[Rfam]
RNA: Bacterial large subunit ribosomal RNA, nucleotides 8 to 558
RNA sequence: AUAGUAAGGGCAUACGGUGGAUGCCUUGGCUAUACUGGCCGAAGAAGGACGCGGUAAGCUGCGAAAAGCUACGGAGAGGUGCAAGCGACCAUUGACCCGUAGAUAUCCGAAUGGGGGAACCCGGCAGAGUGAAGCUCUGUCACCCAUACCAGAGAGUAUGAGGAGGGCACCUGGGGAACUGAAACAUCUAAGUACCCAGAGGAAAAGUAAUCAAACGAGAUUCUCUUAGUAGCGGCGAGCGAACGGGGAAGAGCCCAAACCGGACUGGUUCGCCAGACCGGGGUUGAGGACUGCUAACAAGCAUAAAUGGGAUAGACGAACCGACUUGGAACGGUCGGCCGAAGAAGGUGAAAGCCCUGUAGUCGAAAUCCUGCAUAUGUGGAGCAGUAUCCAGAGUACCACGAGACACGUGAAACCUUGUGGGAAGCAGGGGGGACCACCCUCCAAGGCAAAAUACCAGUAUGGACCGAUAGCGCAUAGUACCGUGAGGGAAAGGUGAAAAGCACCCCGGGAGGGGAGUGAAAGAGAACCUGAAACCGUAUGUCUACAAA
Dot-bracket structure: .......((((((((((.....(((..(((((((((((((......((((((........))).....((((((...(((.......)))......))))))...)))....(((....)))(((((((.....))))))).(((((((......))))).)).))...((((((.....((....))......))))).).........((....))..((((((.....((.....))....)))))...(((....((((.((........)).))))......((.(((((.....(((((..((((((.(((...(.((((......)))))..(...).(((.......)))...)))...))))))..)))))..)))))...))......(((((((...........)))))))......(((((......)))))..)))...)..))))))))).))..............((....))....)).........((((....)))).............).....)))))))))).....